[Rfam]
RNA sequence: AAUUUGCGUUAGGGAUUGAAAUGGAAAUCCUUUUUGCUGUCAUCCUGAGCGUAGUCGAAGGACAAGCAAAAAGAUUGUAAUGUAAAGCCCGCCCGAAC
Number, nucleotide and partner (000 for none) at each position: 001a000002a000003u000004u000005u000006g000007c000008g000009u000010u000011a000012g090013g089014g088015a000016u086017u085018g000019a000020a000021a081022u080023g000024g000025a000026a076027a075028u074029c073030c000031u000032u071033u070034u069035u068036g067037c066038u065039g000040u000041c000042a000043u000044c000045c000046u000047g000048a000049g000050c000051g000052u000053a000054g000055u000056c000057g000058a000059a000060g000061g000062a000063c000064a000065a038066g037067c036068a035069a034070a033071a032072a000073g029074a028075u027076u026077g000078u000079a000080a022081u021082g000083u000084a000085a017086a016087g000088c014089c013090c012091g000092c000093c000094c000095g000096a000097a000098c000